Notes
GA-cis RNA: an 87-nucleotide sequence. The base pairs follow the family's consensus structure, which is taken from published work. It is one of the family's seed sequences. By type it is a small RNA.

Nucleotides: 087
Stems, first nucleotide, its partner, number of pairs: 008045006015031006054077003058073002062069002
Number, partner (000 for none) and nucleotide at each position: 001000u002000g003000u004000a005000g006000u007000c008045g009044g010043u011042g012041u013040c014000c015031g016030u017029g018028g019027a020026a021000c022000g023000g024000a025000g026020u027019u028018c029017c030016a031015u032000a033000u034000u035000a036000g037000g038000a039000u040013g041012a042011c043010a044009c045008c046000g047000a048000c049000g050000a051000c052000c053000u054077g055076c056075c057000g058073c059072u060000g061000a062069g063068c064000g065000u066000a067000u068063g069062c070000g071000a072059g073058g074000g075056g076055g077054c078000a079000a080000u081000a082000c083000c084000a085000a086000c087000u